[Rfam]
RNA: BsrF
RNA sequence: GCGAUGAGCUGAUUUGUGUAAGUCAAAGCACAAUGCAAUAGAUGUGAAUGUGAACACAUCGUGCUUUGCCGCAAAUUUCGUGAAGGCGCCUGUAUUGUAUACGGGCGCC
Numbered sequence: 001g002c003g004a005u006g007a008g009c010u011g012a013u014u015u016g017u018g019u020a021a022g023u024c025a026a027a028g029c030a031c032a033a034u035g036c037a038a039u040a041g042a043u044g045u046g047a048a049u050g051u052g053a054a055c056a057c058a059u060c061g062u063g064c065u066u067u068g069c070c071g072c073a074a075a076u077u078u079c080g081u082g083a084a085g086g087c088g089c090c091u092g093u094a095u096u097g098u099a100u101a102c103g104g105g106c107g108c109c
Stems, first nucleotide, its partner, number of pairs: 014074005024068008041060002044057003085109009